[Rfam]
RNA sequence: GUCUCGGGGUGGAAAGUUGUAACGCUCAUGUUUUUAAAAUCAUAAGCGUAUAGCUUUUCCCCUUCAGCU
Numbered sequence: 001g002u003c004u005c006g007g008g009g010u011g012g013a014a015a016g017u018u019g020u021a022a023c024g025c026u027c028a029u030g031u032u033u034u035u036a037a038a039a040u041c042a043u044a045a046g047c048g049u050a051u052a053g054c055u056u057u058u059c060c061c062c063u064u065c066a067g068c069u
Base pairs, nucleotide, nucleotide: 003067004066006064007063009061011059013057014056017053018052019051020050021049025046026045028043029042030041
This 69-nucleotide RNA from Photinus pyralis belongs to the Rfam family "mir-965 microRNA precursor family". The base pairs follow the family's consensus structure, which was predicted with RNAalifold. On this family, see Huang et al., Bioorg Khim 2012: "The regulation of silkworm fibroin L chain production by miRNA-965 and miRNA-1926 in insect cells".